[Rfam]
RNA sequence: CUGCAUCUACUGAUACGUCUUGAACAAUCUGCUGAUGUUCUUAUGGUUUGCACUAGCAUGCAAGAGAAAAAAUUCCCUGCAGUUUCUGUCUGUCUUUGUGGCAAUCCAGAUUGAAUUGGAGAAUACAUCU
Numbered sequence: 001c002u003g004c005a006u007c008u009a010c011u012g013a014u015a016c017g018u019c020u021u022g023a024a025c026a027a028u029c030u031g032c033u034g035a036u037g038u039u040c041u042u043a044u045g046g047u048u049u050g051c052a053c054u055a056g057c058a059u060g061c062a063a064g065a066g067a068a069a070a071a072a073u074u075c076c077c078u079g080c081a082g083u084u085u086c087u088g089u090c091u092g093u094c095u096u097u098g099u100g101g102c103a104a105u106c107c108a109g110a111u112u113g114a115a116u117u118g119g120a121g122a123a124u125a126c127a128u129c130u
Base pairs, nucleotide, nucleotide: 002062003061004060005059006058008056011052012051014050015049017047018046019045022040023039024038025037026036028034074122075121077119078118079117085110086109087108088107091103092102093101094100
Shown here is a 130-nucleotide RNA sequence from Tupaia belangeri, a member of the family "Small nucleolar RNA SNORA31". On this family, see Huttenhofer et al., EMBO J 2001: "RNomics: an experimental approach that identifies 201 candidates for novel, small, non-messenger RNAs in mouse". Rfam links the family to the GO terms nucleolus and RNA processing. By type it is an H/ACA-box small nucleolar RNA. Rfam describes the family as follows. ACA31 (SNORA31) belongs to the H/ACA class of snoRNAs which are thought to guide the sites of modification of uridines to pseudouridines. ACA31 is predicted to guide the pseudouridylation of U3713 in 28S rRNA and U218 in 18S rRNA. This family includes the mouse homologue snoMBI-161. Taxonomically the source falls in Tupaia belangeri (Eukaryota, Metazoa, Bilateria, Euteleostomi).